[Rfam]
RNA sequence: CUCUUAUCCAGAGUGGUGGAGGGACAUGGACCCUAUGAAGCCCAGCAACCUUCUUAUUUUAUAUAAGAAAGGUGCCAAAACCGUUUGCAGUGGAAACUGAACGAUAAGAG
Numbered sequence: 001c002u003c004u005u006a007u008c009c010a011g012a013g014u015g016g017u018g019g020a021g022g023g024a025c026a027u028g029g030a031c032c033c034u035a036u037g038a039a040g041c042c043c044a045g046c047a048a049c050c051u052u053c054u055u056a057u058u059u060u061a062u063a064u065a066a067g068a069a070a071g072g073u074g075c076c077a078a079a080a081c082c083g084u085u086u087g088c089a090g091u092g093g094a095a096a097c098u099g100a101a102c103g104a105u106a107a108g109a110g
Base pairs, nucleotide, nucleotide: 001110002109003108004107005106006105007104008103013043015042016041017040021033022032023031027087028086029085045075046074047073049072050071051068052067054065088099089098090097091096
RNA: SAM riboswitch aptamer (S box leader)